[Rfam]
RNA: DUF1874 RNA
RNA sequence: GUCAGCCCAGGACCAGGUCUGGAGAUGGUCAUCCAGGGUAAGUCCGUCCAUAGGACGGCGCCAUCUCCACCAAAGGGACUUGGUUUUGGGUGGAGGA
Numbered sequence: 001g002u003c004a005g006c007c008c009a010g011g012a013c014c015a016g017g018u019c020u021g022g023a024g025a026u027g028g029u030c031a032u033c034c035a036g037g038g039u040a041a042g043u044c045c046g047u048c049c050a051u052a053g054g055a056c057g058g059c060g061c062c063a064u065c066u067c068c069a070c071c072a073a074a075g076g077g078a079c080u081u082g083g084u085u086u087u088g089g090g091u092g093g094a095g096g097a
Stems, first nucleotide, its partner, number of pairs: 006090005017079004021068009042059001044058005070075001